[Rfam]
RNA sequence: GUAGACGGCCGGUGUGCGGGCGACAUCGUUUGAGCCCGGAAACGGGCGAGAUGCCGCCCCCUGAAGGCUGUCUCACUCCUCCAUCGUUGGCUUAUCAGGGCCGACACAUAGCAAAUACGGCCACCUGGGG
Numbered sequence: 001g002u003a004g005a006c007g008g009c010c011g012g013u014g015u016g017c018g019g020g021c022g023a024c025a026u027c028g029u030u031u032g033a034g035c036c037c038g039g040a041a042a043c044g045g046g047c048g049a050g051a052u053g054c055c056g057c058c059c060c061c062u063g064a065a066g067g068c069u070g071u072c073u074c075a076c077u078c079c080u081c082c083a084u085c086g087u088u089g090g091c092u093u094a095u096c097a098g099g100g101c102c103g104a105c106a107c108a109u110a111g112c113a114a115a116u117a118c119g120g121c122c123a124c125c126u127g128g129g130g
Stems, first nucleotide, its partner, number of pairs: 003073007018059005024053004034047004087104007